[Rfam]
RNA: mir-156 microRNA precursor family
RNA sequence: GUGACAGAAGAGAGUGAGCACUGAUGGCGUUUUCUUGCAAGAAACGUGUUUGUCGUGCUUGAAGCUAUUUGUGCUCACUGCUCUUUCUGUCAC
Numbered sequence: 001g002u003g004a005c006a007g008a009a010g011a012g013a014g015u016g017a018g019c020a021c022u023g024a025u026g027g028c029g030u031u032u033u034c035u036u037g038c039a040a041g042a043a044a045c046g047u048g049u050u051u052g053u054c055g056u057g058c059u060u061g062a063a064g065c066u067a068u069u070u071g072u073g074c075u076c077a078c079u080g081c082u083c084u085u086u087c088u089g090u091c092a093c
Base pairs, nucleotide, nucleotide: 001093002092003091004090005089006088007087008086009085010083011082012081013079014078015077016076017075018074019073020072021071023069024068025067026066027065